[Rfam]
The record is an 85-nucleotide RNA from Echeneis naucrates, which matches "Small nucleolar RNA SNORD60" in Rfam.
The family's RNA type in Rfam is C/D-box small nucleolar RNA.
RNA sequence: AGCCAGUGAUGACAAAUAUAACUUUUCUGACACCUCGUAUGAGAGCUGCACUUUGGCUCCUGAUUCAAGCUCUAAUCUGAGGCUC
Numbered sequence: 001a002g003c004c005a006g007u008g009a010u011g012a013c014a015a016a017u018a019u020a021a022c023u024u025u026u027c028u029g030a031c032a033c034c035u036c037g038u039a040u041g042a043g044a045g046c047u048g049c050a051c052u053u054u055g056g057c058u059c060c061u062g063a064u065u066c067a068a069g070c071u072c073u074a075a076u077c078u079g080a081g082g083c084u085c
Stems, first nucleotide, its partner, number of pairs: 001084004045057004